[Rfam]
RNA: Plastid-psbA-4 3UTR RNA
RNA sequence: AAAGUAAAGGAGCAAUAACGUCCUCUUGGUAGAACAAGAAAAUGAUUAUUGCUCCCUUACU
Number, nucleotide and partner (000 for none) at each position: 001a000002a000003a000004g000005u000006a058007a057008a000009g055010g054011a053012g052013c051014a050015a049016u048017a047018a000019c000020g000021u000022c000023c000024u039025c038026u037027u036028g035029g000030u000031a000032g000033a000034a000035c028036a027037a026038g025039a024040a000041a000042a000043u000044g000045a000046u000047u017048a016049u015050u014051g013052c012053u011054c010055c009056c000057u007058u006059a000060c000061u000